Rfam assigns this 127-nucleotide RNA sequence from Formicarius rufipectus to the family "Small nucleolar RNA SNORA17". It is annotated as an H/ACA-box small nucleolar RNA. Clan: SNORA17 clan. Taxonomically the source falls in Formicarius (Eukaryota, Chordata, Sarcopterygii, Theropoda). Gene Ontology terms of the family: nucleolus and RNA processing. A search with the family's covariance model found it, with a score of 60 bits. From the family's description: snoRNA ACA 17 belongs to the H/ACA family of snoRNAs and is predicted to guide pseudouridylation of the 28S rRNA at positions U4659 and U4598. Pairs were carried over by alignment from the consensus structure, which was predicted with RNAalifold.
[Rfam]
RNA sequence: UCUGCCCCAGCUUGUGUCGCAGGUGUGGCUGCAGUGCCACGUUUGUGUCAUUCGGUGGCAGAGAGGAAAAGGCAAGGUUUUCCCCUGGCGCUCUGACCCACGUGGGCUCCCAGGAUUGCUCAACAAC
Numbered sequence: 001u002c003u004g005c006c007c008c009a010g011c012u013u014g015u016g017u018c019g020c021a022g023g024u025g026u027g028g029c030u031g032c033a034g035u036g037c038c039a040c041g042u043u044u045g046u047g048u049c050a051u052u053c054g055g056u057g058g059c060a061g062a063g064a065g066g067a068a069a070a071g072g073c074a075a076g077g078u079u080u081u082c083c084c085c086u087g088g089c090g091c092u093c094u095g096a097c098c099c100a101c102g103u104g105g106g107c108u109c110c111c112a113g114g115a116u117u118g119c120u121c122a123a124c125a126a127c
Base pairs, nucleotide, nucleotide: 002061003060004059005058006057007055008054010052014048015047019046020045021044022043024041025040026039027038028037029036071121075120076119081115082114083113087111088110090107091106092105093104